[Rfam]
RNA sequence: UUUGUGGUUGACCGCUAGCGAGGUAUAGAGUUCCUACGUAAAUUUUAGAAGGUAGGAACUUCAUACCGUGCUCUUGGCUCAAUCAC
Numbered sequence: 001u002u003u004g005u006g007g008u009u010g011a012c013c014g015c016u017a018g019c020g021a022g023g024u025a026u027a028g029a030g031u032u033c034c035u036a037c038g039u040a041a042a043u044u045u046u047a048g049a050a051g052g053u054a055g056g057a058a059c060u061u062c063a064u065a066c067c068g069u070g071c072u073c074u075u076g077g078c079u080c081a082a083u084c085a086c
Stems, first nucleotide, its partner, number of pairs: 012077003017072004022067005028061010

mir-276 microRNA precursor family: an 86-nucleotide sequence from Oryctes borbonicus. Rfam 15.1 lists 200 matches to the family in 170 species. NCBI's taxonomy places the organism under Eukaryota, Hexapoda, Endopterygota, Coleoptera, Oryctes. Its family is annotated with RISC complex and miRNA-mediated post-transcriptional gene silencing in the Gene Ontology. It scores 79 bits against the family's covariance model. Pairs were carried over by alignment from the consensus structure, which was predicted with RNAalifold. For this family Rfam cites "Identification of microRNAs expressed in two mosquito vectors, Aedes albopictus and Culex quinquefasciatus" (Skalsky et al., BMC Genomics, 2010).